[Rfam]
RNA sequence: AGCUUUUAUGAGGUAUCAGCACUUUUCGUUCAUUAGGGCGAAGGAGCGAGGAAAGUACCAAAUAGCUGAAGACUUUUAAACUUUAAAUAGACAGGUCUGAGGGCCUGGACUUACUUUUGCAUUUGACUUCAUCCUCUGAGGAGUUCAAUCACUUGGCGUGUCUACUUCACUUCUUUCAAGAGAAAGAGUAAGUUUUUUAAAAG
Numbered sequence: 001a002g003c004u005u006u007u008a009u010g011a012g013g014u015a016u017c018a019g020c021a022c023u024u025u026u027c028g029u030u031c032a033u034u035a036g037g038g039c040g041a042a043g044g045a046g047c048g049a050g051g052a053a054a055g056u057a058c059c060a061a062a063u064a065g066c067u068g069a070a071g072a073c074u075u076u077u078a079a080a081c082u083u084u085a086a087a088u089a090g091a092c093a094g095g096u097c098u099g100a101g102g103g104c105c106u107g108g109a110c111u112u113a114c115u116u117u118u119g120c121a122u123u124u125g126a127c128u129u130c131a132u133c134c135u136c137u138g139a140g141g142a143g144u145u146c147a148a149u150c151a152c153u154u155g156g157c158g159u160g161u162c163u164a165c166u167u168c169a170c171u172u173c174u175u176u177c178a179a180g181a182g183a184a185a186g187a188g189u190a191a192g193u194u195u196u197u198u199a200a201a202a203g
Stems, first nucleotide, its partner, number of pairs: 002020003007015003029143003033139006040130004048123002051120001054118002070098006099114001101112003153199001155196002158194001161191001165186003168182001170180003
Description:
Connexin-43 internal ribosome entry site (IRES): a 203-nucleotide sequence from Balaenoptera musculus. The literature on the family includes a 1999 paper in FEBS Lett by Schiavi et al., "Connexin43 mRNA contains a functional internal ribosome entry site". This family represents the connexin-43 internal ribosome entry site (IRES) which allows cap independent translation during conditions such as heat shock and stress. A search with the family's covariance model found it, with a score of 163 bits. The base pairs follow the family's consensus structure, which is taken from published work. Rfam links the family to the GO term ribosome binding.